[Rfam]
RNA sequence: UGGUGUGAGGAGGGGGCCACACAGGGGGUAUGAUGGUGUGAGGCCCUCACACCAUCAUAUACCCCCUGUGUGGCCCCCUCCUCACACCAU
Numbered sequence: 001u002g003g004u005g006u007g008a009g010g011a012g013g014g015g016g017c018c019a020c021a022c023a024g025g026g027g028g029u030a031u032g033a034u035g036g037u038g039u040g041a042g043g044c045c046c047u048c049a050c051a052c053c054a055u056c057a058u059a060u061a062c063c064c065c066c067u068g069u070g071u072g073g074c075c076c077c078c079u080c081c082u083c084a085c086a087c088c089a090u
Stems, first nucleotide, its partner, number of pairs: 003087005009081013023067010
Rfam assigns this 90-nucleotide RNA from Leptobrachium leishanense to the family "mir-1421 microRNA precursor family". Gene Ontology terms of the family: miRNA-mediated post-transcriptional gene silencing and RISC complex. The match comes from Rfam's covariance-model search (46 bits).